[Rfam]
RNA sequence: AGUGAAGAUUGACCAUCUCACAAAAGCUGUUACGUGCUUGUAACACACUACACACUCGUUUUGUAUUCGAGAAGUAGUUGCAACAACGGUCCCCUUAUUGCCUGACAAGCUGAGGGCCACCCUUCUAUCCCCACCGCCAUCAUGUUUUU
Numbered sequence: 001a002g003u004g005a006a007g008a009u010u011g012a013c014c015a016u017c018u019c020a021c022a023a024a025a026g027c028u029g030u031u032a033c034g035u036g037c038u039u040g041u042a043a044c045a046c047a048c049u050a051c052a053c054a055c056u057c058g059u060u061u062u063g064u065a066u067u068c069g070a071g072a073a074g075u076a077g078u079u080g081c082a083a084c085a086a087c088g089g090u091c092c093c094c095u096u097a098u099u100g101c102c103u104g105a106c107a108a109g110c111u112g113a114g115g116g117c118c119a120c121c122c123u124u125c126u127a128u129c130c131c132c133a134c135c136g137c138c139a140u141c142a143u144g145u146u147u148u149u
Stems, first nucleotide, its partner, number of pairs: 002021004007017003028045006047078005055071004088121003092116006100110002